Small nucleolar RNA snR43: a 241-nucleotide sequence from Maudiozyma saulgeensis. The match comes from Rfam's covariance-model search (109 bits). Its Rfam clan is "SNORA9 clan".
RNA sequence: CACUCCCAUUUCUGCCCCGGGAUCCUUACUACACCCCCACGGAUCACGGGUUCUAAUAGUGGAGAAGAAUAAGCCAUUGAUCGGCCGGUCUGCACACUAAACUGAUACAACCGCAGACUGCUCUCUUUCGAUGGAUCGUGGGAUUCCAUGUAUCGCUCUUGUAAUACAGAGUCACAAACUGAAAAAGCAUUCAUUAUUUAUUUUUGAAGAUGCUCUUCCAGGGGUACAGUUCCCUACAUAC
Numbered sequence: 001c002a003c004u005c006c007c008a009u010u011u012c013u014g015c016c017c018c019g020g021g022a023u024c025c026u027u028a029c030u031a032c033a034c035c036c037c038c039a040c041g042g043a044u045c046a047c048g049g050g051u052u053c054u055a056a057u058a059g060u061g062g063a064g065a066a067g068a069a070u071a072a073g074c075c076a077u078u079g080a081u082c083g084g085c086c087g088g089u090c091u092g093c094a095c096a097c098u099a100a101a102c103u104g105a106u107a108c109a110a111c112c113g114c115a116g117a118c119u120g121c122u123c124u125c126u127u128u129c130g131a132u133g134g135a136u137c138g139u140g141g142g143a144u145u146c147c148a149u150g151u152a153u154c155g156c157u158c159u160u161g162u163a164a165u166a167c168a169g170a171g172u173c174a175c176a177a178a179c180u181g182a183a184a185a186a187g188c189a190u191u192c193a194u195u196a197u198u199u200a201u202u203u204u205u206g207a208a209g210a211u212g213c214u215c216u217u218c219c220a221g222g223g224g225u226a227c228a229g230u231u232c233c234c235u236a237c238a239u240a241c
Stems, first nucleotide, its partner, number of pairs: 003064004016050004021045005074134007083125001084122001086120008140234004146229001157223005164216001